[Rfam]
RNA sequence: AAAACAAUUAUAGCGCCAGAGCUGAAGAAAUUGGACGGAAAAUCAUCUUCAGCAGACGAGGUGGAGGUUAUCGAAAUUUCGGCGGAUGCCUCCCGACCGUAUUUGCCCGGUUGUUAUUCUUUUUCAUAAAACAUUCGAGUGAUCGAAUGACAGGUGGAAUAGAAGGCAUUCUU
Numbered sequence: 001a002a003a004a005c006a007a008u009u010a011u012a013g014c015g016c017c018a019g020a021g022c023u024g025a026a027g028a029a030a031u032u033g034g035a036c037g038g039a040a041a042a043u044c045a046u047c048u049u050c051a052g053c054a055g056a057c058g059a060g061g062u063g064g065a066g067g068u069u070a071u072c073g074a075a076a077u078u079u080c081g082g083c084g085g086a087u088g089c090c091u092c093c094c095g096a097c098c099g100u101a102u103u104u105g106c107c108c109g110g111u112u113g114u115u116a117u118u119c120u121u122u123u124u125c126a127u128a129a130a131a132c133a134u135u136c137g138a139g140u141g142a143u144c145g146a147a148u149g150a151c152a153g154g155u156g157g158a159a160u161a162g163a164a165g166g167c168a169u170u171c172u173u
Base pairs, nucleotide, nucleotide: 021053022052023051024050025049026048027047063093064092065091066090067089071082072081073080074079094113095112096111097110098109099108118163119162120161122159123158124157132149133148134147135146136145137144138143
This 173-nucleotide RNA from Psychrobacillus psychrotolerans belongs to the Rfam family "glmS glucosamine-6-phosphate activated ribozyme aptamer". Taxonomically the source falls in Psychrobacillus (Bacteria, Bacillati, Bacilli, Caryophanales). By type it is a riboswitch. The family's consensus secondary structure is taken from published work. It scores 111 bits against the family's covariance model.